A member of the RNA family "HIV Ribosomal frameshift signal" from Lentivirus humimdef1, 52 nucleotides long. Gene Ontology term of the family: viral translational frameshifting. A reference for the family is Bao et al. (2020), "mRNA stem-loops can pause the ribosome by hindering A-site tRNA binding", Elife.
RNA sequence: UUUUUUAGGGAAAAUCUGGCCUUCCAGCAAGGGAAGGCCAGGGAAUUUUAUC
Dot-bracket structure: .......((.(((((((((((((((......)))))))))))...)))).))
Numbered sequence: 001u002u003u004u005u006u007a008g009g010g011a012a013a014a015u016c017u018g019g020c021c022u023u024c025c026a027g028c029a030a031g032g033g034a035a036g037g038c039c040a041g042g043g044a045a046u047u048u049u050a051u052c
Stems, first nucleotide, its partner, number of pairs: 008052002011049004015042011